[Rfam]
RNA sequence: AGUUGUAAUUCCGGUGAACUGGAGACGUUCUGGACAGGGGUUCGAUUCCCCUCACCUCCACCACUGGGGGGGUGCACUGGUUUCGACAGGGCGGACGAUGGCGAGCAGGCAACCCGUCAGGCGAUCGACGUUAAUGAAGCAAAUCUCUAAACGCCAACGAUGAGCGUUUCGCACUGGCCGCUUAA
Numbered sequence: 001a002g003u004u005g006u007a008a009u010u011c012c013g014g015u016g017a018a019c020u021g022g023a024g025a026c027g028u029u030c031u032g033g034a035c036a037g038g039g040g041u042u043c044g045a046u047u048c049c050c051c052u053c054a055c056c057u058c059c060a061c062c063a064c065u066g067g068g069g070g071g072g073u074g075c076a077c078u079g080g081u082u083u084c085g086a087c088a089g090g091g092c093g094g095a096c097g098a099u100g101g102c103g104a105g106c107a108g109g110c111a112a113c114c115c116g117u118c119a120g121g122c123g124a125u126c127g128a129c130g131u132u133a134a135u136g137a138a139g140c141a142a143a144u145c146u147c148u149a150a151a152c153g154c155c156a157a158c159g160a161u162g163a164g165c166g167u168u169u170c171g172c173a174c175u176g177g178c179c180g181c182u183u184a185a
Stems, first nucleotide, its partner, number of pairs: 002113004015103002026093003030089003036052005053074007115130004
RNA: permuted transfer-messenger RNA